[Rfam]
RNA sequence: UCCGUGGUGACGCGGAAUCUGAAAGAAGUCAGCGGCAAAGAUCUGACCCGACGCACAGAAACUUGAUAUAAGGCUACUUACAGGGAAAAGGCUGCAAAAAGAGUCAAAGUCCAAGAACUACUCGGAACAGCAUGUAGUAAAUCAAGUGGGUAUAAGAUGGAAAGACAAUAUG
Number, nucleotide and partner (000 for none) at each position: 001u016002c015003c014004g013005u012006g011007g000008u000009g000010a000011c006012g005013c004014g003015g002016a001017a000018u000019c000020u000021g000022a000023a000024a000025g000026a000027a000028g000029u000030c000031a169032g000033c000034g000035g000036c164037a000038a000039a000040g000041a158042u157043c156044u155045g000046a151047c150048c149049c148050g147051a000052c000053g000054c000055a000056c000057a000058g000059a000060a000061a000062c146063u145064u144065g143066a142067u141068a000069u000070a000071a000072g000073g138074c137075u136076a000077c134078u000079u132080a000081c130082a000083g128084g112085g111086a110087a000088a000089a000090g105091g104092c103093u102094g000095c000096a000097a000098a000099a000100a000101g000102a093103g092104u091105c090106a000107a000108a000109g000110u086111c085112c084113a000114a000115g000116a000117a000118c000119u000120a000121c000122u000123c000124g000125g000126a000127a000128c083129a000130g081131c000132a079133u000134g077135u000136a075137g074138u073139a000140a000141a067142u066143c065144a064145a063146g062147u050148g049149g048150g047151u046152a000153u000154a000155a044156g043157a042158u041159g000160g000161a000162a000163a000164g036165a000166c000167a000168a000169u031170a000171u000172g000
Shown here is a 172-nucleotide RNA sequence, a member of the family "Group II catalytic intron D1-D4-3". Rfam 15.1 lists 4,274 matches to the family in 1,585 species. Group II introns are found in rRNA, tRNA and mRNA of organelles in fungi, plants and protists, and also in mRNA in bacteria. The base pairs follow the family's consensus structure.